A member of the RNA family "c-di-GMP-I riboswitch aptamer" from Lachnospira eligens, 138 nucleotides long. Taxonomically the source falls in Lachnospira eligens (Bacteria, Clostridia, Lachnospirales, Lachnospiraceae). Gene Ontology term of the family: cyclic-di-GMP binding.
RNA sequence: AAGUAAAUAUGGCAAACUUAUAGAAAUAUAAGGACGCAAAACUAGAAGUCUAGAGGUAUAAAGCUGAAAAACACUAUUUUCAGUUGAGAGAUUCACAUAAGCAUAAGUCUCUAAUACUAUGAUAGUUCGGUUGCAUUA
Numbered sequence: 001a002a003g004u005a006a007a008u009a010u011g012g013c014a015a016a017c018u019u020a021u022a023g024a025a026a027u028a029u030a031a032g033g034a035c036g037c038a039a040a041a042c043u044a045g046a047a048g049u050c051u052a053g054a055g056g057u058a059u060a061a062a063g064c065u066g067a068a069a070a071a072c073a074c075u076a077u078u079u080u081c082a083g084u085u086g087a088g089a090g091a092u093u094c095a096c097a098u099a100a101g102c103a104u105a106a107g108u109c110u111c112u113a114a115u116a117c118u119a120u121g122a123u124a125g126u127u128c129g130g131u132u133g134c135a136u137u138a
Base pairs, nucleotide, nucleotide: 012037013036017032018031019030020029021028022027040132041131042130043129045128046127047126048123049122050121056117057116058115059114